The record is a 48-nucleotide RNA sequence, which matches "gut-2 RNA" in Rfam. The family's consensus secondary structure is taken from published work. The sequence is in the family's curated seed alignment.
[Rfam]
RNA sequence: GACCGUAUGCCAAUAGGGGCAUGCGAAGGACUAAGUGGAGUCAGUUGC
Numbered sequence: 001g002a003c004c005g006u007a008u009g010c011c012a013a014u015a016g017g018g019g020c021a022u023g024c025g026a027a028g029g030a031c032u033a034a035g036u037g038g039a040g041u042c043a044g045u046u047g048c
Base pairs, nucleotide, nucleotide: 004025005024006023007022008021009020010019011018029042030041031040032039